[Rfam]
RNA: mir-133 microRNA precursor family
RNA sequence: AGCUGGUAAAAAGGAACCAAAUCACCUCUUGAAUGGAUUUGGUCCCCUUCAACCAGCUGU
Numbered sequence: 001a002g003c004u005g006g007u008a009a010a011a012a013g014g015a016a017c018c019a020a021a022u023c024a025c026c027u028c029u030u031g032a033a034u035g036g037a038u039u040u041g042g043u044c045c046c047c048u049u050c051a052a053c054c055a056g057c058u059g060u
Stems, first nucleotide, its partner, number of pairs: 001058007010049002013045003017042007